[Rfam]
Nucleotides: 088
Base pairs, nucleotide, nucleotide: 012037013036017032018031019030020029021028022027040082041081042080043079045078046077047076048073049072050071055067056066057065058064
Number, partner (000 for none) and nucleotide at each position: 001000a002000u003000a004000a005000c006000c007000a008000g009000u010000c011000g012037g013036c014000a015000a016000a017032c018031a019030c020029a021028u022027c023000g024000a025000a026000a027022g028021g029020u030019g031018u032017g033000g034000g035000c036013g037012c038000a039000a040082a041081g042080c043079u044000a045078c046077g047076g048073g049072u050071c051000u052000a053000c054000a055067g056066g057065c058064a059000g060000a061000u062000g063000c064058u065057g066056c067055c068000c069000a070000u071050g072049a073048u074000g075000g076047c077046c078045g079043a080042g081041u082040u083000g084000c085000a086000c087000c088000c
The family of this 88-nucleotide RNA sequence from Alicyclobacillus hesperidum is "c-di-GMP-I riboswitch aptamer". GEMM was predicted in a large-scale screen for bacterial structured RNA regulatory elements. Genes associated with GEMM are involved in a diverse array of functions, including chemotaxis regulation, signal transduction, secretion and chitin. It scores 68 bits against the family's covariance model. Lineage of the source: Bacteria > Bacillota > Bacilli > Alicyclobacillaceae > Alicyclobacillus. The base pairs follow the family's consensus structure, which is taken from published work.